This 139-nucleotide sequence from Planotetraspora thailandica belongs to the Rfam family "c-di-AMP riboswitch aptamer (ydaO/yuaA leader)".
RNA sequence: AGGUCGCCACCGCCGAGUCCGCGCCGACGCGGAGCCGGGGACCCACCUCUCUCUCGGGGUGAAUCGGCACAGCACGUGCCGUAGGGCGCCUUCCAGCCCGAACCCGUCAGCUAACCCGGUAGGCGGCCUGGAAGUAAGG
Numbered sequence: 001a002g003g004u005c006g007c008c009a010c011c012g013c014c015g016a017g018u019c020c021g022c023g024c025c026g027a028c029g030c031g032g033a034g035c036c037g038g039g040g041a042c043c044c045a046c047c048u049c050u051c052u053c054u055c056g057g058g059g060u061g062a063a064u065c066g067g068c069a070c071a072g073c074a075c076g077u078g079c080c081g082u083a084g085g086g087c088g089c090c091u092u093c094c095a096g097c098c099c100g101a102a103c104c105c106g107u108c109a110g111c112u113a114a115c116c117c118g119g120u121a122g123g124c125g126g127c128c129u130g131g132a133a134g135u136a137a138g139g
Base pairs, nucleotide, nucleotide: 011125012124013123014122018033019032020031021030022029023028034120035119036118037117038116039115044056057105058104059103065081066080067079068078084099085098086097087096
From the family's description: This family represents a conserved RNA structure found upstream of the ydaO and yuaA genes in Bacillus subtilis and related genes in other bacteria.